[Rfam]
RNA sequence: GGCCUCCCUCUGCGGGGCGAUCAAUCGUGGGGCUCCACCAUCGAUUGCCGGGCAGAGGGAGGCC
Numbered sequence: 001g002g003c004c005u006c007c008c009u010c011u012g013c014g015g016g017g018c019g020a021u022c023a024a025u026c027g028u029g030g031g032g033c034u035c036c037a038c039c040a041u042c043g044a045u046u047g048c049c050g051g052g053c054a055g056a057g058g059g060a061g062g063c064c
Base pairs, nucleotide, nucleotide: 001064002063003062004061005060006059007058008057009056010055011054012053013052016049017048018047019046020045021044022043024041025040027038028037029036030035
RNA: mir-9242 microRNA precursor family